[Rfam]
The family of this 88-nucleotide RNA sequence from Scyliorhinus torazame is "Small nucleolar RNA SNORD11B". The source organism's lineage runs through Eukaryota, Metazoa, Bilateria, Gnathostomata and Scyliorhinus. The base pairs follow the family's consensus structure, which was predicted with WAR. A search with the family's covariance model found it, with a score of 61 bits. A reference for the family is Yang et al. (2006), "snoSeeker: an advanced computational package for screening of guide and orphan snoRNA genes in the human genome", Nucleic Acids Res. It is annotated as a C/D-box small nucleolar RNA.
RNA sequence: UGGCAGCAGUGAUGAUGACGACGACUUUGUCACUCUUCCUGAUUAAAUGCUGAGGGUUUUUUAGUCACUACCUCAUCUGAGACUGCCA
Numbered sequence: 001u002g003g004c005a006g007c008a009g010u011g012a013u014g015a016u017g018a019c020g021a022c023g024a025c026u027u028u029g030u031c032a033c034u035c036u037u038c039c040u041g042a043u044u045a046a047a048u049g050c051u052g053a054g055g056g057u058u059u060u061u062u063a064g065u066c067a068c069u070a071c072c073u074c075a076u077c078u079g080a081g082a083c084u085g086c087c088a
Stems, first nucleotide, its partner, number of pairs: 002087005